[Rfam]
The record is a 132-nucleotide RNA sequence from Takifugu flavidus, which matches "Small nucleolar RNA SNORA77" in Rfam.
By type it is an H/ACA-box small nucleolar RNA.
A reference for the family is Schattner et al. (2006), "A computational screen for mammalian pseudouridylation guide H/ACA RNAs", RNA.
Its family is annotated with nucleolus and RNA processing in the Gene Ontology.
ACA63 (SNORA77) is a member of the H/ACA class of snoRNAs that guide the sites of modification of uridines to pseudouridines. This snoRNA was identified by computational screening and its expression in mouse experimentally verified by Northern blot and primer extension analysis. ACA63 is proposed to guide the pseudouridylation of 18S rRNA U814.
It scores 48 bits against the family's covariance model.
NCBI's taxonomy places the organism under Eukaryota, Eumetazoa, Teleostomi, Eurypterygia, Takifugu.
RNA sequence: GCGGGCCCACUCUGUUCCUUGCUGCUCACUCCAGCCUGGAACUUUUUUCGCCUGCUAUAUGAACACGCAGAAUGUAACUUUUCUCACUGGCUUUGCAAAUAAGCUGGUAUUAUUAUGUUCUGCCACAUUUCU
Dot-bracket structure: ((((((.......(((((...(((.......)))...))))).......))))))...........(((((((((((....(.(((..................))).)...))))))))))).........
Numbered sequence: 001g002c003g004g005g006c007c008c009a010c011u012c013u014g015u016u017c018c019u020u021g022c023u024g025c026u027c028a029c030u031c032c033a034g035c036c037u038g039g040a041a042c043u044u045u046u047u048u049c050g051c052c053u054g055c056u057a058u059a060u061g062a063a064c065a066c067g068c069a070g071a072a073u074g075u076a077a078c079u080u081u082u083c084u085c086a087c088u089g090g091c092u093u094u095g096c097a098a099a100u101a102a103g104c105u106g107g108u109a110u111u112a113u114u115a116u117g118u119u120c121u122g123c124c125a126c127a128u129u130u131c132u
Stems, first nucleotide, its partner, number of pairs: 001055006014042005022034003067123011082109001084107003